[Rfam]
The record is a 95-nucleotide RNA sequence from Actinokineospora fastidiosa, which matches "Bacterial small signal recognition particle RNA" in Rfam. The organism belongs to Actinokineospora, within Bacteria.
RNA sequence: GGCGGACCCCGCGCGGUGCGCAUCCCAUGAACCUCCCCAGGGCCGGAAGGCAGCAAGGAUAAGUGGGCUCUGGCAGGUGCGCGGGGUCCCCUUUU
Number, nucleotide and partner (000 for none) at each position: 001g000002g000003c000004g089005g088006a087007c086008c085009c084010c083011g082012c081013g080014c077015g000016g000017u075018g074019c073020g000021c000022a000023u000024c067025c066026c065027a064028u063029g000030a000031a000032c000033c000034u059035c058036c057037c000038c000039a000040g000041g000042g051043c050044c049045g000046g000047a000048a000049g044050g043051c042052a000053g000054c000055a000056a000057g036058g035059a034060u000061a000062a000063g028064u027065g026066g025067g024068c000069u000070c000071u000072g000073g019074c018075a017076g000077g014078u000079g000080c013081g012082c011083g010084g009085g008086g007087u006088c005089c004090c000091c000092u000093u000094u000095u000
Pairs were carried over by alignment from the consensus structure, which is taken from published work. The family's RNA type in Rfam is non-coding RNA gene. The match comes from Rfam's covariance-model search (66 bits).